[Rfam]
RNA sequence: CAGACCUUUAAAAGGAAUCCAGAGAGGUUCCAAAGGUCGCCUAUAGGAUACGUGUACCUUUUCUACACGUCUACCUCUUUGCGACCUCUUCGCAAAGAGUUUUUUUAU
Numbered sequence: 001c002a003g004a005c006c007u008u009u010a011a012a013a014g015g016a017a018u019c020c021a022g023a024g025a026g027g028u029u030c031c032a033a034a035g036g037u038c039g040c041c042u043a044u045a046g047g048a049u050a051c052g053u054g055u056a057c058c059u060u061u062u063c064u065a066c067a068c069g070u071c072u073a074c075c076u077c078u079u080u081g082c083g084a085c086c087u088c089u090u091c092g093c094a095a096a097g098a099g100u101u102u103u104u105u106u107a108u
Base pairs, nucleotide, nucleotide: 003038004037005036006035007034008033009032014031015030016029017028018027019026039070040069042067044065045064046063047062048061050059052057073101075099076098077097078096079095080094081093082092083091084090
RNA: PyrR binding site